[Rfam]
RNA sequence: UCAGCACCCAGGGGGCGGUUGAACCUUAUCGACCUGAGAUUUGUCUAAUACCUGCGCGAACAUUCAUCAUGCGCAGUGCGGUGACAUAAACCCCAUGAACCUGAUCCGGUUAACACCGGCGUAGGGAUGGGUAACAAUGUUCUC
Numbered sequence: 001u002c003a004g005c006a007c008c009c010a011g012g013g014g015g016c017g018g019u020u021g022a023a024c025c026u027u028a029u030c031g032a033c034c035u036g037a038g039a040u041u042u043g044u045c046u047a048a049u050a051c052c053u054g055c056g057c058g059a060a061c062a063u064u065c066a067u068c069a070u071g072c073g074c075a076g077u078g079c080g081g082u083g084a085c086a087u088a089a090a091c092c093c094c095a096u097g098a099a100c101c102u103g104a105u106c107c108g109g110u111u112a113a114c115a116c117c118g119g120c121g122u123a124g125g126g127a128u129g130g131g132u133a134a135c136a137a138u139g140u141u142c143u144c
Base pairs, nucleotide, nucleotide: 006132007131008130009129010128011094012093013092014091017034018033019032020031021030042086043085044084045083100125101124102123103122106119107118108117109116